[Rfam]
RNA sequence: GGGUUAAUGCUAAUUGUGAUAGGGGUUUAACUGUGAAGGACUCCUGUACAUUAGCAUUAGCCC
Numbered sequence: 001g002g003g004u005u006a007a008u009g010c011u012a013a014u015u016g017u018g019a020u021a022g023g024g025g026u027u028u029a030a031c032u033g034u035g036a037a038g039g040a041c042u043c044c045u046g047u048a049c050a051u052u053a054g055c056a057u058u059a060g061c062c063c
Stems, first nucleotide, its partner, number of pairs: 004060011020046004025041003
Shown here is a 63-nucleotide RNA sequence from Synaphobranchus kaupii, a member of the family "mir-155 microRNA precursor family". Pairs were carried over by alignment from the consensus structure, which was predicted with RNAalifold. NCBI's taxonomy places the organism under Eukaryota, Deuterostomia, Euteleostomi, Actinopterygii, Synaphobranchus. Its family is annotated with RISC complex and miRNA-mediated post-transcriptional gene silencing in the Gene Ontology.